RNA sequence: GAAACCUCAUCUUGCUCAAGCGCCAUCCGGGCGUCGAGCAGUGUUUUUCCUGAGGAAAGGCAUAGGCACUCCGCCUGGAUGAGGAGAGAGU
Numbered sequence: 001g002a003a004a005c006c007u008c009a010u011c012u013u014g015c016u017c018a019a020g021c022g023c024c025a026u027c028c029g030g031g032c033g034u035c036g037a038g039c040a041g042u043g044u045u046u047u048u049c050c051u052g053a054g055g056a057a058a059g060g061c062a063u064a065g066g067c068a069c070u071c072c073g074c075c076u077g078g079a080u081g082a083g084g085a086g087a088g089a090g091u
Base pairs, nucleotide, nucleotide: 005084006083007082008081009080010079011078012077015038016037017036020034021033022032023031024030041063042062043061044060045059046058047057048056049055050054064076065075066074067073

The family of this 91-nucleotide RNA sequence is "RAGATH-10 RNA".
For this family Rfam cites "New classes of self-cleaving ribozymes revealed by comparative genomics analysis" (Weinberg et al., Nat Chem Biol, 2015).
Rfam's curators put it in the seed alignment.
Rfam classes the family as a small RNA.